A member of the RNA family "mir-17 microRNA precursor family" from Mus musculus, 78 nucleotides long. Pairs were carried over by alignment from the consensus structure, which was predicted with RNAalifold. This family represents the microRNA (miRNA) precursor mir-17, family, which includes mir-20, mir-91, and mir-103. miRNAs are transcribed as ~70nt precursors (modelled here) and subsequently processed by the Dicer enzyme to give a ~22nt product. In this case the mature sequence comes from the 3' arm of the precursor. The extents of the hairpin precursors are not generally known and are estimated based on hairpin prediction. The family has 234 seed sequences and 4,687 matches in Rfam 15.1. A reference for the family is Lagos-Quintana et al. (2001), "Identification of novel genes coding for small expressed RNAs", Science. The sequence is in the family's curated seed alignment.
[Rfam]
RNA sequence: UUCUGUAGCACUAAAGUGCUUAUAGUGCAGGUAGUGUGUAGCCAUCUACUGCAUUACGAGCACUUAAAGUACUGCCAG
Numbered sequence: 001u002u003c004u005g006u007a008g009c010a011c012u013a014a015a016g017u018g019c020u021u022a023u024a025g026u027g028c029a030g031g032u033a034g035u036g037u038g039u040a041g042c043c044a045u046c047u048a049c050u051g052c053a054u055u056a057c058g059a060g061c062a063c064u065u066a067a068a069g070u071a072c073u074g075c076c077a078g
Stems, first nucleotide, its partner, number of pairs: 005075004010070003014065008023056006030050005